[Rfam]
RNA sequence: GAUGCCGGACCUGCCGGCACCACAGAUGCGGCUGCUCUGCUGCACCUGCGAAGUGGAGGCAAAGAGGAAGUGGCUACUUCUAGGCUCAGUGCUCAGUAUAGUGAGCGCUAAGAAUGGUUUAUAGCCUAUCACGC
Numbered sequence: 001g002a003u004g005c006c007g008g009a010c011c012u013g014c015c016g017g018c019a020c021c022a023c024a025g026a027u028g029c030g031g032c033u034g035c036u037c038u039g040c041u042g043c044a045c046c047u048g049c050g051a052a053g054u055g056g057a058g059g060c061a062a063a064g065a066g067g068a069a070g071u072g073g074c075u076a077c078u079u080c081u082a083g084g085c086u087c088a089g090u091g092c093u094c095a096g097u098a099u100a101g102u103g104a105g106c107g108c109u110a111a112g113a114a115u116g117g118u119u120u121a122u123a124g125c126c127u128a129u130c131a132c133g134c
Stems, first nucleotide, its partner, number of pairs: 003061004008054001023048003072126003080117003085112002090107006
Dot-bracket structure: ..((((.(..............(((....................))).....)...))))..........(((.....(((..((...((((((......))))))...))..)))......)))........
RNA: Small nucleolar RNA SNORA43